This 418-nucleotide part of an RNA from Zymoseptoria ardabiliae belongs to the Rfam family "Eukaryotic large subunit ribosomal RNA". The organism belongs to Zymoseptoria ardabiliae, within Eukaryota.

RNA sequence: UAACCUCGGAUCGGGUAGGGAUACCUACUAAACUUAAGUAUAUUAAUAAGCGGAGGAAAAGAAACUAAUAGGGAUUGCCCUAGUAAUAGCGAGUAAAGCGGCAAUAGCUUAAAUUUAAAAUCUAGCCCCCCGGCCCGAGUUAUAAUUUAUAGAGGAUGCUUCUAGGUAGCGACCGGUCUAAGUUCCUUAGAAUAGGACGUUAUAGAGGGUAAGAAUCCUAUAUACGACCGGCCCCCGCCCUCUACGUAGCUCCUUCGACGAGUCGAGUUGUUUAGGAAUAUAGCUCUAAAUAGGAGGUAAAUUUCUUCUAAAGCUAAAUACCGGCUAGAGACCGAUAGCGUAUAAGUAGAGUAAUCGAAAGAUAAAAAGUACUUUAGAAAGAGAGUUAAAAAGUACGUAAAAUUAUUAAAAGGGAAGC
Numbered sequence: 001u002a003a004c005c006u007c008g009g010a011u012c013g014g015g016u017a018g019g020g021a022u023a024c025c026u027a028c029u030a031a032a033c034u035u036a037a038g039u040a041u042a043u044u045a046a047u048a049a050g051c052g053g054a055g056g057a058a059a060a061g062a063a064a065c066u067a068a069u070a071g072g073g074a075u076u077g078c079c080c081u082a083g084u085a086a087u088a089g090c091g092a093g094u095a096a097a098g099c100g101g102c103a104a105u106a107g108c109u110u111a112a113a114u115u116u117a118a119a120a121u122c123u124a125g126c127c128c129c130c131c132g133g134c135c136c137g138a139g140u141u142a143u144a145a146u147u148u149a150u151a152g153a154g155g156a157u158g159c160u161u162c163u164a165g166g167u168a169g170c171g172a173c174c175g176g177u178c179u180a181a182g183u184u185c186c187u188u189a190g191a192a193u194a195g196g197a198c199g200u201u202a203u204a205g206a207g208g209g210u211a212a213g214a215a216u217c218c219u220a221u222a223u224a225c226g227a228c229c230g231g232c233c234c235c236c237g238c239c240c241u242c243u244a245c246g247u248a249g250c251u252c253c254u255u256c257g258a259c260g261a262g263u264c265g266a267g268u269u270g271u272u273u274a275g276g277a278a279u280a281u282a283g284c285u286c287u288a289a290a291u292a293g294g295a296g297g298u299a300a301a302u303u304u305c306u307u308c309u310a311a312a313g314c315u316a317a318a319u320a321c322c323g324g325c326u327a328g329a330g331a332c333c334g335a336u337a338g339c340g341u342a343u344a345a346g347u348a349g350a351g352u353a354a355u356c357g358a359a360a361g362a363u364a365a366a367a368a369g370u371a372c373u374u375u376a377g378a379a380a381g382a383g384a385g386u387u388a389a390a391a392a393g394u395a396c397g398u399a400a401a402a403u404u405a406u407u408a409a410a411a412g413g414g415a416a417g418c
Stems, first nucleotide, its partner, number of pairs: 024055001025053002028050002035042002065072002076103004086094002106315004112147004118141002121138002125134003152256002154253003159249002162246001164241003169236001173231006182198001184197004201205001208218002265286007292309005349356002372383004
Dot-bracket structure: .......................(((.((.....((....))......)).)).).........((....))...((((......((.....)).....))))..((((..((((..((.((..(((....)))..)).))..))))....(((((..((.(.(((..(...((((((...(.((((......)))))..(...)..((.......)).......))))))....)..)))....).)).))).))........(((((((........))))))).....(((((........)))))..)))).................................((....))...............((((....))))...................................